About this RNA: Rfam assigns this 123-nucleotide RNA sequence from secondary endosymbiont of Trabutina mannipara to the family "Ribosomal S15 leader". The match comes from Rfam's covariance-model search (45 bits). About the family: The E. coli Ribosomal S15 gene 5' UTR can form two alternative structures. Taxonomically the source falls in mealybug secondary endosymbionts (Bacteria, Gammaproteobacteria, Enterobacterales, ant, tsetse, mealybug, aphid, etc. endosymbionts).

[Rfam]
RNA sequence: UUAUCUAUAAGUAAAUAGAGAGCUUAAGAGAUAUCGGCGCUCAUCUAUUUAAUUGGGAGUAUUAUAAUGUCUCUAAGUUUUGAAAUUAAAAAAAAAAUUAUCUCUACUUUCGGCCGUAACGCU
Number, nucleotide and partner (000 for none) at each position: 001u000002u000003a032004u031005c030006u029007a000008u000009a000010a000011g000012u000013a000014a000015a000016u000017a000018g000019a000020g000021a000022g000023c000024u000025u000026a000027a000028g000029a006030g005031a004032u003033a000034u000035c000036g000037g000038c000039g000040c000041u000042c000043a000044u000045c000046u000047a000048u000049u000050u000051a000052a000053u077054u076055g000056g074057g073058a072059g071060u000061a000062u000063u000064a000065u000066a000067a000068u000069g000070u000071c059072u058073c057074u056075a000076a054077g053078u000079u000080u000081u000082g000083a000084a000085a000086u000087u000088a000089a000090a000091a000092a000093a000094a000095a000096a000097a000098u000099u000100a000101u000102c000103u000104c000105u000106a000107c000108u000109u000110u000111c000112g000113g000114c000115c000116g000117u000118a000119a000120c000121g000122c000123u000